[Rfam]
Source information:
Rfam assigns this 139-nucleotide RNA from Rattus norvegicus to the family "Small nucleolar RNA SNORA48". Its Rfam clan is "SNORA48 clan". Lineage of the source: Eukaryota > Craniata > Theria > Muroidea > Rattus. The literature on the family includes a 1997 paper in J Mol Biol by Ofengand and Bakin, "Mapping to nucleotide resolution of pseudouridine residues in large subunit ribosomal RNAs from representative eukaryotes, prokaryotes, archaebacteria, mitochondria and chloroplasts". Rfam links the family to the GO terms nucleolus and RNA processing. It scores 55 bits against the family's covariance model. The snoRNA ACA 48 has been identified to guide pseudouridylation of the residue U3797 in the 28S rRNA subunit. Rfam classes the family as an H/ACA-box small nucleolar RNA. Pairs were carried over by alignment from the consensus structure, which was predicted with RNAalifold.

RNA sequence: AGCCCAUAGCACAGGGCAAAGAGACACCUUGUUGGUGGUGAUGUUCUUAUUUCAAUCAGUGGCAGAGCAAAUGUUCUUUGUUCAUCCAAGCUUGAUGACUGGCUUGAUAGAUAAGCUGUCUUAUGCCUAGGAAUUAUAA
Numbered sequence: 001a002g003c004c005c006a007u008a009g010c011a012c013a014g015g016g017c018a019a020a021g022a023g024a025c026a027c028c029u030u031g032u033u034g035g036u037g038g039u040g041a042u043g044u045u046c047u048u049a050u051u052u053c054a055a056u057c058a059g060u061g062g063c064a065g066a067g068c069a070a071a072u073g074u075u076c077u078u079u080g081u082u083c084a085u086c087c088a089a090g091c092u093u094g095a096u097g098a099c100u101g102g103c104u105u106g107a108u109a110g111a112u113a114a115g116c117u118g119u120c121u122u123a124u125g126c127c128u129a130g131g132a133a134u135u136a137u138a139a
Stems, first nucleotide, its partner, number of pairs: 002063003006060002009057001014053002019048003023042001025040004081132003094127001096125001100123003105118002108115001